[Rfam]
RNA sequence: GUCACCCUGCAGUGUUCGCGGAUGCCAUAUAUUCCUUGAACCAUUUGUAUGCAACGGUCGCGGAAAUUUGUUUGAUGGGAGUGAGCGUCGCUAGCCCGAUGAACCCGAAAUUGAACUAACUGUGACCACCUGAGCCACCAGGUUCGGGAUGCCGGCAUAGCGGCACAGGCGGGGCUUCA
Numbered sequence: 001g002u003c004a005c006c007c008u009g010c011a012g013u014g015u016u017c018g019c020g021g022a023u024g025c026c027a028u029a030u031a032u033u034c035c036u037u038g039a040a041c042c043a044u045u046u047g048u049a050u051g052c053a054a055c056g057g058u059c060g061c062g063g064a065a066a067u068u069u070g071u072u073u074g075a076u077g078g079g080a081g082u083g084a085g086c087g088u089c090g091c092u093a094g095c096c097c098g099a100u101g102a103a104c105c106c107g108a109a110a111u112u113g114a115a116c117u118a119a120c121u122g123u124g125a126c127c128a129c130c131u132g133a134g135c136c137a138c139c140a141g142g143u144u145c146g147g148g149a150u151g152c153c154g155g156c157a158u159a160g161c162g163g164c165a166c167a168g169g170c171g172g173g174g175c176u177u178c179a
Stems, first nucleotide, its partner, number of pairs: 005174006012166004017162003033149003037146006056127003060123004070116007081105001086101005
6S / SsrS RNA: a 179-nucleotide sequence from Massilia sp. Root351. By type it is a non-coding RNA gene. The base pairs follow the family's consensus structure, which is taken from published work. The source organism's lineage runs through Bacteria, Pseudomonadati, Pseudomonadota, Burkholderiales and Massilia. The literature on the family includes a 2000 paper in Cell by Wassarman and Storz, "6S RNA regulates E. coli RNA polymerase activity". The family has 150 seed sequences and 5,006 matches in Rfam 15.1. Rfam's curators write: E. coli 6S RNA was the first non coding RNA to be sequenced, but its function was unknown until recently.